[Rfam]
RNA sequence: AUCGCUCGCUAGGGGUCUUCGUAACGAAGUGAGAAACACCCUUUGAACCUGUACGGGUAAUGCCGUCGUAGGGAAGCAUCCCCCGAUGCUC
Dot-bracket structure: .......(((((((.((((((...)))))......)..)))).....((((.((((......))))..))))..)))..............